[Rfam]
RNA: Small nucleolar RNA Z43
RNA sequence: GGACGAUGACGACUCAAUAUCAAGGUCUCGUUCGUCGUAAUGGCGGUGCUUGUCUCCGACUUGACGACCAUCCUGAUAUAUCACCACCCAUAUUCUGAGUCC
Numbered sequence: 001g002g003a004c005g006a007u008g009a010c011g012a013c014u015c016a017a018u019a020u021c022a023a024g025g026u027c028u029c030g031u032u033c034g035u036c037g038u039a040a041u042g043g044c045g046g047u048g049c050u051u052g053u054c055u056c057c058g059a060c061u062u063g064a065c066g067a068c069c070a071u072c073c074u075g076a077u078a079u080a081u082c083a084c085c086a087c088c089c090a091u092a093u094u095c096u097g098a099g100u101c102c
Base pairs, nucleotide, nucleotide: 001102002101003100004099046062048057